Rfam assigns this 75-nucleotide RNA sequence from Candidatus Nitrososphaera gargensis to the family "tRNA". For this family Rfam cites "The tertiary structure of tRNA and the development of the genetic code" (Hou, Trends Biochem Sci, 1993). From the family's description: Transfer RNA (tRNA) molecules are approximately 80 nucleotides in length. The organism belongs to Candidatus Nitrososphaera gargensis, within Archaea.
RNA sequence: GGGCAGGUGGUCUAGCUCGGUUAUGAUACCUCGUUGACAUCGAGGUGGUCGGGUGUUCAAAUCACCCCCUGCCCA
Numbered sequence: 001g002g003g004c005a006g007g008u009g010g011u012c013u014a015g016c017u018c019g020g021u022u023a024u025g026a027u028a029c030c031u032c033g034u035u036g037a038c039a040u041c042g043a044g045g046u047g048g049u050c051g052g053g054u055g056u057u058c059a060a061a062u063c064a065c066c067c068c069c070u071g072c073c074c075a
Base pairs, nucleotide, nucleotide: 001074002073003072004071005070006069007068010027011026012025029045030044031043032042033041051067052066053065054064055063